[Rfam]
RNA sequence: CUGUCCCCUAGAGUUCCCUUGAGCACUUCACUGGGAUGAAAAAAGGUCCAGUCUUCCUUCCUACUGAAGUGUUUGGGGGAACUCCUGGUGUCAU
Numbered sequence: 001c002u003g004u005c006c007c008c009u010a011g012a013g014u015u016c017c018c019u020u021g022a023g024c025a026c027u028u029c030a031c032u033g034g035g036a037u038g039a040a041a042a043a044a045g046g047u048c049c050a051g052u053c054u055u056c057c058u059u060c061c062u063a064c065u066g067a068a069g070u071g072u073u074u075g076g077g078g079g080a081a082c083u084c085c086u087g088g089u090g091u092c093a094u
Base pairs, nucleotide, nucleotide: 005090007088008087011084012083013082014081015080016079017078018077019076020075022074023073024071025070026069027068028067029066030065032063033062034061035060
Overview
The record is a 94-nucleotide RNA from Ricinus communis, which matches "mir-395 microRNA precursor family" in Rfam. The family has 25 seed sequences and 2,798 matches in Rfam 15.1. The literature on the family includes a 2004 paper in Mol Cell by Jones-Rhoades and Bartel, "Computational Identification of Plant MicroRNAs and Their Targets, Including a Stress-Induced miRNA". From the family's description: mir-395 was identified in both Arabidopsis thaliana and Oryza sativa computationally and was later experimentally verified. mir-395 is thought to target mRNAs coding for ATP sulphurylases. The mature sequence is excised from the 3' arm of the hairpin. The family's consensus secondary structure was predicted with PFOLD.